[Rfam]
Nucleotides: 084
Base pairs, nucleotide, nucleotide: 002083004081005080006079
Number, partner (000 for none) and nucleotide at each position: 001000a002083u003000u004081g005080c006079a007000a008000g009000u010000g011000a012000u013000g014000u015000g016000a017000a018000a019000a020000a021000g022000a023000a024000u025000a026000g027000g028000g029000a030000c031000a032000u033000c034000a035000u036000a037000u038000u039000u040000c041000c042000c043000g044000a045000a046000a047000g048000g049000g050000c051000u052000g053000a054000u055000g056000a057000c058000a059000c060000a061000u062000u063000c064000u065000g066000g067000g068000a069000a070000u071000c072000u073000c074000u075000c076000u077000g078000a079006u080005g081004c082000u083002a084000u
The family of this 84-nucleotide RNA from Ceratodon purpureus is "Small nucleolar RNA R44/J54/Z268 family". The source organism's lineage runs through Eukaryota, Bryophytina, Bryopsida, Pseudoditrichales and Ceratodon. The family's consensus secondary structure was predicted with PFOLD. The family is grouped with related families in Rfam's "SNORD74 clan".